[Rfam]
RNA sequence: GCAAGCGUGAACUUGGCUGGUGCUGAGUAUGGUCUUCAAAACCAUGGGUCAUUAGCGUGACAGGGGUUCGAUUCCUCCUCGCCUGC
Numbered sequence: 001g002c003a004a005g006c007g008u009g010a011a012c013u014u015g016g017c018u019g020g021u022g023c024u025g026a027g028u029a030u031g032g033u034c035u036u037c038a039a040a041a042c043c044a045u046g047g048g049u050c051a052u053u054a055g056c057g058u059g060a061c062a063g064g065g066g067u068u069c070g071a072u073u074c075c076u077c078c079u080c081g082c083c084u085g086c
Base pairs, nucleotide, nucleotide: 001086002085003084005082006081007080009078012027013026014025015024016023017022028046029045030044031043032042033041048061049060050059051058052057063077064076065075066074